[Rfam]
The record is an 84-nucleotide RNA from Bombyx mori, which matches "mir-2807 microRNA precursor family" in Rfam. A reference for the family is Cai et al. (2010), "Novel microRNAs in silkworm (Bombyx mori)", Funct Integr Genomics. The source organism's lineage runs through Eukaryota, Panarthropoda, Arthropoda, Ditrysia and Bombyx. Pairs were carried over by alignment from the consensus structure, which was predicted with RNAalifold. Gene Ontology terms of the family: miRNA-mediated post-transcriptional gene silencing and RISC complex.
RNA sequence: UUAACUCAAAUAUGUAUGAAGUUCGAACGCUUGCCUACGUUUGCCGCUAGGGGUGCUGUUCCAACUCCAUAGAAGUUUGAGUUA
Numbered sequence: 001u002u003a004a005c006u007c008a009a010a011u012a013u014g015u016a017u018g019a020a021g022u023u024c025g026a027a028c029g030c031u032u033g034c035c036u037a038c039g040u041u042u043g044c045c046g047c048u049a050g051g052g053g054u055g056c057u058g059u060u061c062c063a064a065c066u067c068c069a070u071a072g073a074a075g076u077u078u079g080a081g082u083u084a
Base pairs, nucleotide, nucleotide: 008078009077010076011075013073015071016070018068020066021065022064023063025061026060027059028058029057034052035051036050039047040046